RNA sequence: CGGGGGAGGCGGGAUCUUGGGCUGUGUCCCUGCGCCCUGUGCUCCGGGGCCUGCGCUGUUGGAUUCGUGCUCCCGCCCUGCAGCUCCCU
Numbered sequence: 001c002g003g004g005g006g007a008g009g010c011g012g013g014a015u016c017u018u019g020g021g022c023u024g025u026g027u028c029c030c031u032g033c034g035c036c037c038u039g040u041g042c043u044c045c046g047g048g049g050c051c052u053g054c055g056c057u058g059u060u061g062g063a064u065u066c067g068u069g070c071u072c073c074c075g076c077c078c079u080g081c082a083g084c085u086c087c088c089u
Stems, first nucleotide, its partner, number of pairs: 002088005009081002011078003016075001019073003023069004027063003030058001032056004039051001041050003
Shown here is an 89-nucleotide sequence from Nyctereutes procyonoides, a member of the family "mir-8799 microRNA precursor family". Its family is annotated with miRNA-mediated post-transcriptional gene silencing and RISC complex in the Gene Ontology. Taxonomically the source falls in Nyctereutes (Eukaryota, Chordata, Teleostomi, Carnivora). The match comes from Rfam's covariance-model search (80 bits).